[Rfam]
RNA sequence: GGGUUACUCCUUGGCGCUUGCGCGCUGUUUUGAUGAAGAUUCGCACCUCUAUCAAAACGGGUAACCCCGCCUCUUGGCAAGGCCUUACUGUCAGAUCAAGUCUGAACUUCUACAGCUAAUGUGCUAUGCGAGCGAGUCGUGGCGCUAAUGCCUGCGCUGGUUGCGCCAUUGGCGAUCGAGCCU
Numbered sequence: 001g002g003g004u005u006a007c008u009c010c011u012u013g014g015c016g017c018u019u020g021c022g023c024g025c026u027g028u029u030u031u032g033a034u035g036a037a038g039a040u041u042c043g044c045a046c047c048u049c050u051a052u053c054a055a056a057a058c059g060g061g062u063a064a065c066c067c068c069g070c071c072u073c074u075u076g077g078c079a080a081g082g083c084c085u086u087a088c089u090g091u092c093a094g095a096u097c098a099a100g101u102c103u104g105a106a107c108u109u110c111u112a113c114a115g116c117u118a119a120u121g122u123g124c125u126a127u128g129c130g131a132g133c134g135a136g137u138c139g140u141g142g143c144g145c146u147a148a149u150g151c152c153u154g155c156g157c158u159g160g161u162u163g164c165g166c167c168a169u170u171g172g173c174g175a176u177c178g179a180g181c182c183u
Stems, first nucleotide, its partner, number of pairs: 001067007009060002014025004027058009037048002077143001081138002084136002090107002092104005109131002114127001171183001172181002
The record is a 183-nucleotide RNA from Burkholderia glumae, which matches "Proteobacterial sRNA psRNA2" in Rfam. By type it is a small RNA. The family has 7 seed sequences and 122 matches in Rfam 15.1. For this family Rfam cites "Computational prediction and transcriptional analysis of sRNAs in Nitrosomonas europaea" (Gvakharia et al., FEMS Microbiol Lett, 2010).